[Rfam]
RNA sequence: CUUAUGUAUUGACUAUUAGCUUGUAUAUAUGCCGUAAUAUGGACGGCAAGUUUCUAGCCGCUAACCGUAAAUCUGCGGGCUACAAGCAAACAAUUACUCUUU
Numbered sequence: 001c002u003u004a005u006g007u008a009u010u011g012a013c014u015a016u017u018a019g020c021u022u023g024u025a026u027a028u029a030u031g032c033c034g035u036a037a038u039a040u041g042g043a044c045g046g047c048a049a050g051u052u053u054c055u056a057g058c059c060g061c062u063a064a065c066c067g068u069a070a071a072u073c074u075g076c077g078g079g080c081u082a083c084a085a086g087c088a089a090a091c092a093a094u095u096a097c098u099c100u101u102u
Base pairs, nucleotide, nucleotide: 019087020086021085022084023083024082025081030048031047032046033045034044035043058078059077060076061075064072
The record is a 102-nucleotide RNA from Hoskinsella hominis, which matches "Purine riboswitch aptamer" in Rfam. About the family: Riboswitches are metabolite binding domains within certain messenger RNAs that serve as precision sensors for their corresponding targets.